[Rfam]
RNA sequence: UAGUUAUCAAGAAAGGUGGAGGGAAUAGACCCUAUGAAGCCUUAGCAACCUUCCGAUCUUAACGGAGCUGGUGCUAAAUUCUAUCCCUUAAAUCAGGGAAAAGAUAGCAA
Numbered sequence: 001u002a003g004u005u006a007u008c009a010a011g012a013a014a015g016g017u018g019g020a021g022g023g024a025a026u027a028g029a030c031c032c033u034a035u036g037a038a039g040c041c042u043u044a045g046c047a048a049c050c051u052u053c054c055g056a057u058c059u060u061a062a063c064g065g066a067g068c069u070g071g072u073g074c075u076a077a078a079u080u081c082u083a084u085c086c087c088u089u090a091a092a093u094c095a096g097g098g099a100a101a102a103g104a105u106a107g108c109a110a
Base pairs, nucleotide, nucleotide: 001110003108004107005106006105007104008103013043014042015041016040017039021032022031023030026083027082028081029080044075045074046073047072049071050070051067052066053065054064079102084099085098086097087096088095
RNA: SAM riboswitch aptamer (S box leader)